[Rfam]
RNA sequence: AAACAAUUCUGGCAAAUUCGCACACGCGUCGACACGUUGACCCAGGGUGCCUGUCUGACAGGUUGGGUCAAUUGGACGUGUGGAGGACUAAC
Numbered sequence: 001a002a003a004c005a006a007u008u009c010u011g012g013c014a015a016a017u018u019c020g021c022a023c024a025c026g027c028g029u030c031g032a033c034a035c036g037u038u039g040a041c042c043c044a045g046g047g048u049g050c051c052u053g054u055c056u057g058a059c060a061g062g063u064u065g066g067g068u069c070a071a072u073u074g075g076a077c078g079u080g081u082g083g084a085g086g087a088c089u090a091a092c
Base pairs, nucleotide, nucleotide: 023082024081025080026079027078028077029076030075036072037071038070039069040068041067042066043065044064049063050062051061052060053059
A member of the RNA family "t44 RNA" from Marinobacter sp. X15-166B, 92 nucleotides long. Rfam's curators write: This family consists of a number of bacterial RNA genes of between 135 and 170 bases in length. The t44 gene has been identified in several species of enteric bacteria but homologs have also been identified in Pseudomonas and Coxiella species. The t44 gene is found between the map and rpsB genes in all species in the full alignment apart from Shigella flexneri. The function of this RNA is unknown. The source organism's lineage runs through Bacteria, Pseudomonadati, Gammaproteobacteria, Marinobacteraceae and Marinobacter. A search with the family's covariance model found it, with a score of 65 bits. The family's RNA type in Rfam is small RNA.